[Rfam]
RNA sequence: CCCGCCACUUUGCCAGUCUUUCUGAGUGACUGAGUAUAGUCCAGUGGAGGCGAAGAUGGACCCAGCUCUAGGAAACAGGGCUGCCCAGAAUGUGGGAAGCUCUGUGCCGAAAGGCCUGGAACAAAU
Numbered sequence: 001c002c003c004g005c006c007a008c009u010u011u012g013c014c015a016g017u018c019u020u021u022c023u024g025a026g027u028g029a030c031u032g033a034g035u036a037u038a039g040u041c042c043a044g045u046g047g048a049g050g051c052g053a054a055g056a057u058g059g060a061c062c063c064a065g066c067u068c069u070a071g072g073a074a075a076c077a078g079g080g081c082u083g084c085c086c087a088g089a090a091u092g093u094g095g096g097a098a099g100c101u102c103u104g105u106g107c108c109g110a111a112a113g114g115c116c117u118g119g120a121a122c123a124a125a126u
Base pairs, nucleotide, nucleotide: 005047006046007045008044009043018034019033020032021029022028062119063118064117065116066114067113069111071108072107076104077103078102079101080100081099084096085095086094

A member of the RNA family "Small nucleolar RNA SNORA65" from Oncorhynchus tshawytscha, 126 nucleotides long.
Rfam's curators write: U65 belongs to the H/ACA class of snoRNAs which are thought to guide the sites of modification of uridines to pseudouridines.
A search with the family's covariance model found it, with a score of 105 bits.
The source organism's lineage runs through Eukaryota, Eumetazoa, Deuterostomia, Protacanthopterygii and Oncorhynchus.
The family has 14 seed sequences and 1,089 matches in Rfam 15.1.